[Rfam]
RNA sequence: GAUCCUGCUCCGGGGUGCACGCCAGUGCUGAGAUUCAGACCCGCGAACUUGACCCGGUUCAUGCCGGCGUAAGAAGAGCAUUCGUCUUGUCC
Numbered sequence: 001g002a003u004c005c006u007g008c009u010c011c012g013g014g015g016u017g018c019a020c021g022c023c024a025g026u027g028c029u030g031a032g033a034u035u036c037a038g039a040c041c042c043g044c045g046a047a048c049u050u051g052a053c054c055c056g057g058u059u060c061a062u063g064c065c066g067g068c069g070u071a072a073g074a075a076g077a078g079c080a081u082u083c084g085u086c087u088u089g090u091c092c
Stems, first nucleotide, its partner, number of pairs: 006080005011043004016037001017028004048073004054067004
TPP riboswitch aptamer (THI element): a 92-nucleotide RNA. The match comes from Rfam's covariance-model search (60 bits). The base pairs follow the family's consensus structure, which is taken from published work. Vitamin B(1) in its active form thiamin pyrophosphate (TPP) is an essential coenzyme that is synthesised by coupling of pyrimidine and thiazole moieties in bacteria. Its family is annotated with thiamine pyrophosphate binding in the Gene Ontology.